[Rfam]
Nucleotides: 078
Base pairs, nucleotide, nucleotide: 028073029072030071031070032069033068034067035066
Number, partner (000 for none) and nucleotide at each position: 001000a002000c003000g004000c005000a006000g007000u008000u009000u010000a011000a012000a013000a014000u015000a016000u017000a018000u019000a020000u021000u022000a023000a024000u025000u026000u027000c028073a029072u030071c031070a032069u033068a034067a035066u036000c037000a038000u039000c040000u041000u042000u043000u044000a045000a046000a047000a048000a049000g050000a051000g052000u053000a054000a055000u056000c057000a058000a059000a060000a061000a062000g063000a064000g065000g066035a067034u068033u069032a070031u071030g072029a073028u074000a075000u076000a077000a078000u